[Rfam]
RNA sequence: GCGCUAGUUUAGCUCAGCGGCUACAUCAAACCAGUGAACUCAUCAGCCCCUGCCUUCCGGUUGGGGCAGAUCGAACCGCGGGCGCUGUCUAGCGUUUUA
Dot-bracket structure: .((((((....((((.((((.....((.(.........................................).)).)))))))).....)))))).....
Notes
This 99-nucleotide sequence from Gadus morhua belongs to the Rfam family "Vault RNA". The family's RNA type in Rfam is non-coding RNA gene. The match comes from Rfam's covariance-model search (59 bits). NCBI's taxonomy places the organism under Eukaryota, Euteleostomi, Gadariae, Gadidae, Gadus. The base pairs follow the family's consensus structure, which is taken from published work.